[Rfam]
Nucleotides: 105
Base pairs, nucleotide, nucleotide: 006093007092008091009090010089011056012055013054014053016050017028018027019026020025036049037048038047039046061086062085063084064083067080068079069078070077
Number, partner (000 for none) and nucleotide at each position: 001000g002000g003000c004000a005000a006093c007092u008091g009090c010089u011056a012055g013054g014053g015000g016050a017028g018027c019026c020025c021000g022000c023000a024000c025020g026019g027018g028017c029000u030000g031000a032000g033000a034000u035000a036049a037048g038047g039046g040000a041000g042000c043000c044000g045000u046039c047038c048037c049036u050016u051000g052000a053014c054013c055012c056011u057000g058000u059000g060000a061086c062085c063084u064083g065000a066000u067080c068079u069078g070077g071000g072000u073000a074000a075000u076000a077070c078069c079068a080067g081000c082000g083064u084063a085062g086061g087000g088000a089010a090009g091008c092007g093006g094000u095000g096000c097000a098000g099000c100000a101000g102000c103000a104000a105000a